RNA sequence: CUAAUAAAUGUCGUUUUUCGUCGUAUAAUCUUGGGGAUAUGGCCCAGAAGUUUCUACCGAGCUACCGUAAAUAGCUUGACUACGAGGUGAGUGAUAUAAAAG
Numbered sequence: 001c002u003a004a005u006a007a008a009u010g011u012c013g014u015u016u017u018u019c020g021u022c023g024u025a026u027a028a029u030c031u032u033g034g035g036g037a038u039a040u041g042g043c044c045c046a047g048a049a050g051u052u053u054c055u056a057c058c059g060a061g062c063u064a065c066c067g068u069a070a071a072u073a074g075c076u077u078g079a080c081u082a083c084g085a086g087g088u089g090a091g092u093g094a095u096a097u098a099a100a101a102g
Stems, first nucleotide, its partner, number of pairs: 019087001021085005029049001031047005058078007
The record is a 102-nucleotide RNA sequence from Bacillus sp. Y1, which matches "Purine riboswitch aptamer" in Rfam.
Riboswitches are metabolite binding domains within certain messenger RNAs that serve as precision sensors for their corresponding targets.
The family has 133 seed sequences and 4,097 matches in Rfam 15.1.
The organism belongs to Bacillus, within Bacteria.
It scores 85 bits against the family's covariance model.